[Rfam]
RNA sequence: GAGGGGUAAGAAUAGGCCUAUCGACUUGGGAUAAAAAGUGGUCAACCAUUGGGGUAAAACUAAAUCUGCUUCUUUUUACCCCUAAAACUUUUUACCGUGCGUAAAAAGAAUCUUCUUGGGGUAUAAUAAGAACCUGAUUUAGACUUACCCCAAGGGGUGAUGUCUUUUACCCCAAAAAGAUUGGGCUCUUAGCUCAA
Numbered sequence: 001g002a003g004g005g006g007u008a009a010g011a012a013u014a015g016g017c018c019u020a021u022c023g024a025c026u027u028g029g030g031a032u033a034a035a036a037a038g039u040g041g042u043c044a045a046c047c048a049u050u051g052g053g054g055u056a057a058a059a060c061u062a063a064a065u066c067u068g069c070u071u072c073u074u075u076u077u078a079c080c081c082c083u084a085a086a087a088c089u090u091u092u093u094a095c096c097g098u099g100c101g102u103a104a105a106a107a108g109a110a111u112c113u114u115c116u117u118g119g120g121g122u123a124u125a126a127u128a129a130g131a132a133c134c135u136g137a138u139u140u141a142g143a144c145u146u147a148c149c150c151c152a153a154g155g156g157g158u159g160a161u162g163u164c165u166u167u168u169a170c171c172c173c174a175a176a177a178a179g180a181u182u183g184g185g186c187u188c189u190u191a192g193c194u195c196a197a
Stems, first nucleotide, its partner, number of pairs: 003195003007191005015186001017184002020181003026175005032169003041161004046156002049153005055147003060142007068134001070132005076126001077123006084116001088108008
Dot-bracket structure: ..(((.(((((...(.((.(((...(((((.(((......((((.((.(((((.(((..(((((((.(.(((((.(((((((.(...((((((((.....)))))))).......).))))))..).))))).).)))))))..))).))))).)).)))).....))).)))))...))).)).)))))).)))..
A member of the RNA family "MIR2670 microRNA precursor family" from Medicago truncatula, 197 nucleotides long. Lineage of the source: Eukaryota > Pentapetalae > fabids > Papilionoideae > Medicago. A search with the family's covariance model found it, with a score of 123 bits. The family's consensus secondary structure was predicted with RNAalifold.